The record is a 148-nucleotide sequence from Gossypium arboreum, which matches "Small nucleolar RNA U19" in Rfam. Rfam 15.1 lists 421 matches to the family in 201 species. The literature on the family includes a 2002 paper in Curr Biol by Marker et al., "Experimental RNomics: identification of 140 candidates for small non-messenger RNAs in the plant Arabidopsis thaliana". Rfam classes the family as an H/ACA-box small nucleolar RNA. Rfam links the family to the GO terms nucleolus and RNA processing.
RNA sequence: AAUUGGCUUAGUUAGGAGGCAGAAAUCGAUUCGAAAAACAGAGAUAUCGGGUUUCUGAUGUUUCUGGUCGAUUUAACCAAGGCCUUUUUGAGGGGACUCUUGGCUCCUCUUUCUUCACCCAUUGUCCCCCAAGCAGCCUUGGACAUUU
Numbered sequence: 001a002a003u004u005g006g007c008u009u010a011g012u013u014a015g016g017a018g019g020c021a022g023a024a025a026u027c028g029a030u031u032c033g034a035a036a037a038a039c040a041g042a043g044a045u046a047u048c049g050g051g052u053u054u055c056u057g058a059u060g061u062u063u064c065u066g067g068u069c070g071a072u073u074u075a076a077c078c079a080a081g082g083c084c085u086u087u088u089u090g091a092g093g094g095g096a097c098u099c100u101u102g103g104c105u106c107c108u109c110u111u112u113c114u115u116c117a118c119c120c121a122u123u124g125u126c127c128c129c130c131a132a133g134c135a136g137c138c139u140u141g142g143a144c145a146u147u148u
Stems, first nucleotide, its partner, number of pairs: 004021002007018003034068001037065001041061001043059001077142007087133004092129006100121001